A member of the RNA family "PreQ1 (pre queuosine) riboswitch aptamer" from Mergibacter septicus, 45 nucleotides long.
Rfam's curators write: This family is a bacterial riboswitch that binds to the metabolite preQ1, an intermediate in the biosynthesis of the modified nucleoside queuosine from GTP. One example of this riboswitch is located in the leader of the Bacillus subtilis ykvJKLM (queCDEF) operon which encodes four genes necessary for queuosine production. PreQ1 binding to the riboswitch aptamer is thought to induce premature transcription termination within the leader to down-regulate expression of these genes.
The source organism's lineage runs through Bacteria, Pseudomonadota, Gammaproteobacteria, Pasteurellaceae and Mergibacter.
The literature on the family includes a 2004 paper in J Biol Chem by Reader et al., "Identification of four genes necessary for biosynthesis of the modified nucleoside queuosine".
RNA sequence: UUACUCGUGGUUCGCAACCCUCCCACGUAAAAAAACUAGGAAAAU
Numbered sequence: 001u002u003a004c005u006c007g008u009g010g011u012u013c014g015c016a017a018c019c020c021u022c023c024c025a026c027g028u029a030a031a032a033a034a035a036c037u038a039g040g041a042a043a044a045u
Stems, first nucleotide, its partner, number of pairs: 006027005016037001